The family of this 596-nucleotide part of an RNA from Aplysia californica is "Eukaryotic large subunit ribosomal RNA". The organism belongs to Aplysia, within Eukaryota. The sequence is in the family's curated seed alignment.
RNA sequence: AAAGAAGACCCUGUUGAGCUUGACUCUAGUCCGACUUUGUAAAGAAGCAUGAUGGGUGUAGCAUAGGUGGGAGCGCAAGCGCAAUUGAAAUACCACUCCUUUUAUCGUUUCUUUACUUAUUCAGUGAAGCGGAGAGCGGGGCGCAAGCCCCUCGCUUCUGGAGUUAAGCCACCGCGCUCGAUCGCGGUGGCGAUCCGCUCUGAAGACAGUGUCAGGCGGGGAGUUUGACUGGGGCGGUACAUCUGUCAAAAGGUAACGCAGGUGUCCCAAGGCGAGCUCAGCGAGGACGGAAACCUCGCGUAGAGCAAAAGGGCAAAAGCUCGCUUGAUUUUGAUUUUCAGUACGAAUACAGACCGUGAAAGCGUGGCCUAUCGAUCCUUUUGACUUUAAGAGUUUUAAGCAAGAGGUGUCAGAAAAGUUACCACAGGGAUAACUGGCUUGUGGCAGCCAAGCGUUCAUAGCGACGUUGCUUUUUGAUCCUUCGAUGUCGGCUCUUCCUAUCAUUGCGAAGCAGAAUUCGCCAAGCGUUGGAUUGUUCACCCACUAAUAGGGAACGUGAGCUGGGUUUAGACCGUCGUGAGACAGGUUAGUUUUAC
Dot-bracket structure: .((......((((.(((((((.((((...((.(((...((((((((((((((.(((.........(((((..((....))............)))))))).)))).))))))))))...(((((.....((((....(((((....)))))................((((((((........))))))))..))))..)))))......))).))....))))..((((.....))).)((((((...........))))))..((....((((((((.((((((.......))))))...))((......))....))))))....(((..((((.......))))..))).(((....))).))..........((((((..((((.......)))))))))).........)))))..))))))........(.(.(.((((((...((.......))...))))))...)).)..........(((((((((((..(...(((((......))))).....).(((.(.....).))).....)))))..)..)))).).....(((((((....))).))))....))..
Numbered sequence: 001a002a003a004g005a006a007g008a009c010c011c012u013g014u015u016g017a018g019c020u021u022g023a024c025u026c027u028a029g030u031c032c033g034a035c036u037u038u039g040u041a042a043a044g045a046a047g048c049a050u051g052a053u054g055g056g057u058g059u060a061g062c063a064u065a066g067g068u069g070g071g072a073g074c075g076c077a078a079g080c081g082c083a084a085u086u087g088a089a090a091u092a093c094c095a096c097u098c099c100u101u102u103u104a105u106c107g108u109u110u111c112u113u114u115a116c117u118u119a120u121u122c123a124g125u126g127a128a129g130c131g132g133a134g135a136g137c138g139g140g141g142c143g144c145a146a147g148c149c150c151c152u153c154g155c156u157u158c159u160g161g162a163g164u165u166a167a168g169c170c171a172c173c174g175c176g177c178u179c180g181a182u183c184g185c186g187g188u189g190g191c192g193a194u195c196c197g198c199u200c201u202g203a204a205g206a207c208a209g210u211g212u213c214a215g216g217c218g219g220g221g222a223g224u225u226u227g228a229c230u231g232g233g234g235c236g237g238u239a240c241a242u243c244u245g246u247c248a249a250a251a252g253g254u255a256a257c258g259c260a261g262g263u264g265u266c267c268c269a270a271g272g273c274g275a276g277c278u279c280a281g282c283g284a285g286g287a288c289g290g291a292a293a294c295c296u297c298g299c300g301u302a303g304a305g306c307a308a309a310a311g312g313g314c315a316a317a318a319g320c321u322c323g324c325u326u327g328a329u330u331u332u333g334a335u336u337u338u339c340a341g342u343a344c345g346a347a348u349a350c351a352g353a354c355c356g357u358g359a360a361a362g363c364g365u366g367g368c369c370u371a372u373c374g375a376u377c378c379u380u381u382u383g384a385c386u387u388u389a390a391g392a393g394u395u396u397u398a399a400g401c402a403a404g405a406g407g408u409g410u411c412a413g414a415a416a417a418g419u420u421a422c423c424a425c426a427g428g429g430a431u432a433a434c435u436g437g438c439u440u441g442u443g444g445c446a447g448c449c450a451a452g453c454g455u456u457c458a459u460a461g462c463g464a465c466g467u468u469g470c471u472u473u474u475u476g477a478u479c480c481u482u483c484g485a486u487g488u489c490g491g492c493u494c495u496u497c498c499u500a501u502c503a504u505u506g507c508g509a510a511g512c513a514g515a516a517u518u519c520g521c522c523a524a525g526c527g528u529u530g531g532a533u534u535g536u537u538c539a540c541c542c543a544c545u546a547a548u549a550g551g552g553a554a555c556g557u558g559a560g561c562u563g564g565g566u567u568u569a570g571a572c573c574g575u576c577g578u579g580a581g582a583c584a585g586g587u588u589a590g591u592u593u594u595a596c
Stems, first nucleotide, its partner, number of pairs: 002594002010428004015424002017420005023224004030216002033213003039116010049105004054100003066097005073080002120204005130197004138151005168191008227240001228238003241263006266367002272324006278304002281299006305314002329353003334348004355364003378406006386400004437478001439476001441475001443471006452462002489564001490562004494556001495553005502527001506521005529543003533539001570588004574583003